[Rfam]
RNA sequence: AAAACCUUUAAAUUAGUCCGGAGAGACUAAUAAGGUGCACAAUAAGGACGGGCCUACUGUGCCUUAGUGACCUUUAAGCCUCUUACUCCGGUAAGAGGCUUUAUUGUGU
Numbered sequence: 001a002a003a004a005c006c007u008u009u010a011a012a013u014u015a016g017u018c019c020g021g022a023g024a025g026a027c028u029a030a031u032a033a034g035g036u037g038c039a040c041a042a043u044a045a046g047g048a049c050g051g052g053c054c055u056a057c058u059g060u061g062c063c064u065u066a067g068u069g070a071c072c073u074u075u076a077a078g079c080c081u082c083u084u085a086c087u088c089c090g091g092u093a094a095g096a097g098g099c100u101u102u103a104u105u106g107u108g109u
Stems, first nucleotide, its partner, number of pairs: 004036005013030006040069002043066005051058002074103001076101011

The family of this 109-nucleotide sequence from Thermosinus carboxydivorans is "PyrR binding site". By type it is a cis-regulatory element. Taxonomically the source falls in Thermosinus carboxydivorans (Bacteria, Selenomonadales, Sporomusaceae, Thermosinus). On this family, see Bonner et al., Nucleic Acids Res 2001: "Molecular recognition of pyr mRNA by the Bacillus subtilis attenuation regulatory protein PyrR".